[Rfam]
RNA: Guanidine-I riboswitch aptamer
RNA sequence: UGAGUUGGCGGCUAGGGUUCCGGCGUUCUUCGAACGUGCUGGUCCGAGAGCUACCACCGGCGGGGAGAAAUCCCGCCGGGUGCACGGCGGGAGAAAAGCCCGGGAGAC
Numbered sequence: 001u002g003a004g005u006u007g008g009c010g011g012c013u014a015g016g017g018u019u020c021c022g023g024c025g026u027u028c029u030u031c032g033a034a035c036g037u038g039c040u041g042g043u044c045c046g047a048g049a050g051c052u053a054c055c056a057c058c059g060g061c062g063g064g065g066a067g068a069a070a071u072c073c074c075g076c077c078g079g080g081u082g083c084a085c086g087g088c089g090g091g092a093g094a095a096a097a098g099c100c101c102g103g104g105a106g107a108c
Stems, first nucleotide, its partner, number of pairs: 007055002010052003015045002020042002022039001023037006056081001057079007083103001085106001089101003